RNA sequence: UCAGAUAGCCAUCGUAUCCUACGGCAAAGAAAAACCCGCAGUACUGGGUCAUGACGAAGCGGCUUACGCCAAAAACCGUCGUGCCGUACUGGUUUACUAAGAGAAUGGCAUGAGCGGUAACUUCAGAGUCUCCCUGUUG
Numbered sequence: 001u002c003a004g005a006u007a008g009c010c011a012u013c014g015u016a017u018c019c020u021a022c023g024g025c026a027a028a029g030a031a032a033a034a035c036c037c038g039c040a041g042u043a044c045u046g047g048g049u050c051a052u053g054a055c056g057a058a059g060c061g062g063c064u065u066a067c068g069c070c071a072a073a074a075a076c077c078g079u080c081g082u083g084c085c086g087u088a089c090u091g092g093u094u095u096a097c098u099a100a101g102a103g104a105a106u107g108g109c110a111u112g113a114g115c116g117g118u119a120a121c122u123u124c125a126g127a128g129u130c131u132c133c134c135u136g137u138u139g
Stems, first nucleotide, its partner, number of pairs: 001047004014035002017032001020029001054138001057135001059133001062130001065127001068124001075118002078115001079113006086106002089103002
RNA: CpoB/ybgF ICR thermometer
Organism: Tenebrionibacter intestinalis